[Rfam]
RNA sequence: CGGUGUUGUCAGUGGGGCGUGACUCCUCACACUCGUAGGUACAGCCCCAUCUCGCAACACCUAGAGCU
Numbered sequence: 001c002g003g004u005g006u007u008g009u010c011a012g013u014g015g016g017g018c019g020u021g022a023c024u025c026c027u028c029a030c031a032c033u034c035g036u037a038g039g040u041a042c043a044g045c046c047c048c049a050u051c052u053c054g055c056a057a058c059a060c061c062u063a064g065a066g067c068u
Stems, first nucleotide, its partner, number of pairs: 002061002005058005015047003
This 68-nucleotide sequence from Leptomonas pyrrhocoris belongs to the Rfam family "Trypanosomatid snoRNA TB10Cs2H1". By type it is an H/ACA-box small nucleolar RNA. It scores 56 bits against the family's covariance model.